RNA sequence: CCCUCCGAAGUUUCCCUCAGGAUAGCUGGCGCUCGAUGUCUCGCAGUUUUAUCUGGUAAAGCGAAUGAUUAGAGGUCUUGGGGCCGAAACGAUCUCAACCUAUUCUCAAACUUUAAAUGGGUAAGAAGCCCGGCUCGCUGGCUUGGAGCCGGGCGUGGAAUGCGAGCCGCCUAGUGGGCCACUUUUGGUAAGCAGAACUGGCGCUGCGGGAUGAACCGAACGCCGGGUUAAGGCGCCCGAUGCCGACGCUCAUCAGACCCCAGAAAAGGUGUUGGUCGAUAUAGACAGCAGGACGGUGGCCAUGGAAGUCGGAAUCCGCUAAGGAGUGUGUAACAACUCACCUGCCGAAUCAACUAGCCCUGAAAAUGGAUGGCGCUGGAGCGUCGGGCCCAUACCCGGCCGUCGCUGGCCACGAGAGCCUCGAGGGCUAUGCCGCGACGAGUAGGAGGGCCGCCGCGGUGAGCACGGAAGCCUAGGGCGCGGGCCCGGGUGGAGCCGCCGCGGGUGCAGAU
Numbered sequence: 001c002c003c004u005c006c007g008a009a010g011u012u013u014c015c016c017u018c019a020g021g022a023u024a025g026c027u028g029g030c031g032c033u034c035g036a037u038g039u040c041u042c043g044c045a046g047u048u049u050u051a052u053c054u055g056g057u058a059a060a061g062c063g064a065a066u067g068a069u070u071a072g073a074g075g076u077c078u079u080g081g082g083g084c085c086g087a088a089a090c091g092a093u094c095u096c097a098a099c100c101u102a103u104u105c106u107c108a109a110a111c112u113u114u115a116a117a118u119g120g121g122u123a124a125g126a127a128g129c130c131c132g133g134c135u136c137g138c139u140g141g142c143u144u145g146g147a148g149c150c151g152g153g154c155g156u157g158g159a160a161u162g163c164g165a166g167c168c169g170c171c172u173a174g175u176g177g178g179c180c181a182c183u184u185u186u187g188g189u190a191a192g193c194a195g196a197a198c199u200g201g202c203g204c205u206g207c208g209g210g211a212u213g214a215a216c217c218g219a220a221c222g223c224c225g226g227g228u229u230a231a232g233g234c235g236c237c238c239g240a241u242g243c244c245g246a247c248g249c250u251c252a253u254c255a256g257a258c259c260c261c262a263g264a265a266a267a268g269g270u271g272u273u274g275g276u277c278g279a280u281a282u283a284g285a286c287a288g289c290a291g292g293a294c295g296g297u298g299g300c301c302a303u304g305g306a307a308g309u310c311g312g313a314a315u316c317c318g319c320u321a322a323g324g325a326g327u328g329u330g331u332a333a334c335a336a337c338u339c340a341c342c343u344g345c346c347g348a349a350u351c352a353a354c355u356a357g358c359c360c361u362g363a364a365a366a367u368g369g370a371u372g373g374c375g376c377u378g379g380a381g382c383g384u385c386g387g388g389c390c391c392a393u394a395c396c397c398g399g400c401c402g403u404c405g406c407u408g409g410c411c412a413c414g415a416g417a418g419c420c421u422c423g424a425g426g427g428c429u430a431u432g433c434c435g436c437g438a439c440g441a442g443u444a445g446g447a448g449g450g451c452c453g454c455c456g457c458g459g460u461g462a463g464c465a466c467g468g469a470a471g472c473c474u475a476g477g478g479c480g481c482g483g484g485c486c487c488g489g490g491u492g493g494a495g496c497c498g499c500c501g502c503g504g505g506u507g508c509a510g511a512u
Stems, first nucleotide, its partner, number of pairs: 001450006011024001013022003028171004033166001047126008059114001060112002066108003071103001073101003078098006085091001128154009178202004183197005207218003222400005228394001232390003241387001243386001247383003267361003271358006278351003288345005294318003300312002319323001324339001328337002401440006408434003452507001454504008463496002471491002477486003
Shown here is a 512-nucleotide part of an RNA from Salmo salar, a member of the family "Eukaryotic large subunit ribosomal RNA". Rfam's curators put it in the seed alignment. Its family is annotated with ribosome and structural constituent of ribosome in the Gene Ontology.